[Rfam]
RNA sequence: CCAGGGGGCCGGGCAGUCGCGUCGCGUUUUCGCGCCGAGGAAAGUCCGGGCUCCACGGAACAAGGGUGGCGGGUAACGCCCGCCGGGCCACGGUCCUUCGGGACCCGAAGCUCAGGGACAGUGCCACAGAAAGCAAACCGCCGUUGGCGCCUCGCGCGUACAGGCAAGGGUGAAAGGGUGCGGCAAGAGCGCACCGCGCGGCCGGCAACGGUCGCGGCACGGCAAACCCCACCCGGAGCAAGACCGAAUAGGGGCAGCGUGCCGUCAAGGCGGGUCGGUUCCGGACCCAUGCUGCCCGGGUUGGUCGCUGGAGCGGCGGAGCAAUCCGUCGCCGAGAGGAAUGGCUGCCCUUGCAGCCCGCGUCUUCGGAUACGGGGCUGCAAGACAGAACCCGGCUUACAGGCUCCCUGGCACG
Numbered sequence: 001c002c003a004g005g006g007g008g009c010c011g012g013g014c015a016g017u018c019g020c021g022u023c024g025c026g027u028u029u030u031c032g033c034g035c036c037g038a039g040g041a042a043a044g045u046c047c048g049g050g051c052u053c054c055a056c057g058g059a060a061c062a063a064g065g066g067u068g069g070c071g072g073g074u075a076a077c078g079c080c081c082g083c084c085g086g087g088c089c090a091c092g093g094u095c096c097u098u099c100g101g102g103a104c105c106c107g108a109a110g111c112u113c114a115g116g117g118a119c120a121g122u123g124c125c126a127c128a129g130a131a132a133g134c135a136a137a138c139c140g141c142c143g144u145u146g147g148c149g150c151c152u153c154g155c156g157c158g159u160a161c162a163g164g165c166a167a168g169g170g171u172g173a174a175a176g177g178g179u180g181c182g183g184c185a186a187g188a189g190c191g192c193a194c195c196g197c198g199c200g201g202c203c204g205g206c207a208a209c210g211g212u213c214g215c216g217g218c219a220c221g222g223c224a225a226a227c228c229c230c231a232c233c234c235g236g237a238g239c240a241a242g243a244c245c246g247a248a249u250a251g252g253g254g255c256a257g258c259g260u261g262c263c264g265u266c267a268a269g270g271c272g273g274g275u276c277g278g279u280u281c282c283g284g285a286c287c288c289a290u291g292c293u294g295c296c297c298g299g300g301u302u303g304g305u306c307g308c309u310g311g312a313g314c315g316g317c318g319g320a321g322c323a324a325u326c327c328g329u330c331g332c333c334g335a336g337a338g339g340a341a342u343g344g345c346u347g348c349c350c351u352u353g354c355a356g357c358c359c360g361c362g363u364c365u366u367c368g369g370a371u372a373c374g375g376g377g378c379u380g381c382a383a384g385a386c387a388g389a390a391c392c393c394g395g396c397u398u399a400c401a402g403g404c405u406c407c408c409u410g411g412c413a414c415g
Stems, first nucleotide, its partner, number of pairs: 001411010011400001012349007020037002023034004042398003046395005051238004060280001064234005069083005084115001085113004116229002121227002123223003138169002140165003145162002147159003177195006196218001197216008242306004252297006272288005313332008
Bacterial RNase P class A: a 415-nucleotide RNA from Novosphingobium marinum.
Ribonuclease P (RNase P) is a ubiquitous endoribonuclease, found in archaea, bacteria and eukarya as well as chloroplasts and mitochondria.
The source organism's lineage runs through Bacteria, Pseudomonadati, Alphaproteobacteria, Sphingomonadaceae and Novosphingobium.
By type it is a ribozyme.
Gene Ontology terms of the family: tRNA processing, ribonuclease P activity and dimeric ribonuclease P complex.